[Rfam]
Small nucleolar SNORD12/SNORD106: a 92-nucleotide RNA from Mola mola. Lineage of the source: Eukaryota > Chordata > Ctenosquamata > Molidae > Mola. The match comes from Rfam's covariance-model search (65 bits). The family has 8 seed sequences and 2,264 matches in Rfam 15.1.
RNA sequence: AAUGUGGUUUAUGAUGCUGAACUUUUUUCCCCAUCUUAUCGACCAUGGUGAAUGAGAACUGAAACUAAGCCAGUUUUGUCUGAAACCACAUU
Numbered sequence: 001a002a003u004g005u006g007g008u009u010u011a012u013g014a015u016g017c018u019g020a021a022c023u024u025u026u027u028u029c030c031c032c033a034u035c036u037u038a039u040c041g042a043c044c045a046u047g048g049u050g051a052a053u054g055a056g057a058a059c060u061g062a063a064a065c066u067a068a069g070c071c072a073g074u075u076u077u078g079u080c081u082g083a084a085a086c087c088a089c090a091u092u
Base pairs, nucleotide, nucleotide: 001092002091003090004089005088006087007086008085009084